[Rfam]
RNA: Small nucleolar RNA snoR53Y
RNA sequence: GUUCCCAAUGAUGCUUUUACGAUUAACCAUGCUAAUUCCGAUGAACUAGUGACGGAAAACGUUUGAUUAAUAUCUGAUGGGAACG
Number, nucleotide and partner (000 for none) at each position: 001g084002u083003u082004c081005c080006c079007a078008a000009u000010g000011a000012u000013g000014c000015u000016u000017u000018u000019a000020c000021g000022a000023u000024u000025a000026a000027c000028c000029a000030u000031g000032c000033u000034a000035a000036u000037u000038c000039c000040g000041a000042u000043g000044a000045a000046c000047u000048a000049g000050u000051g000052a000053c000054g000055g000056a000057a000058a000059a000060c000061g000062u000063u000064u000065g000066a000067u000068u000069a000070a000071u000072a000073u000074c000075u000076g000077a000078u007079g006080g005081g004082a003083a002084c001085g000